[Rfam]
RNA sequence: CGAUCUGGAAACAUCGCAAGCCCUACCUCUCUUGCGACCAUAUGGCUCCGAAGACCAUGCCUGUUUGAAUCCUCGUUCACUUGUGUUGA
Number, nucleotide and partner (000 for none) at each position: 001c000002g000003a000004u000005c000006u000007g000008g000009a000010a000011a000012c000013a000014u000015c000016g000017c000018a000019a000020g000021c000022c000023c000024u000025a000026c000027c000028u000029c000030u000031c000032u000033u000034g000035c067036g066037a000038c000039c063040a062041u059042a058043u057044g056045g055046c000047u053048c000049c000050g000051a000052a000053g047054a000055c045056c044057a043058u042059g041060c000061c000062u040063g039064u000065u000066u036067g035068a000069a000070u000071c000072c000073u000074c000075g000076u000077u000078c000079a000080c000081u000082u000083g000084u000085g000086u000087u000088g000089a000
RNA: BsrC
Organism: Tumebacillus algifaecis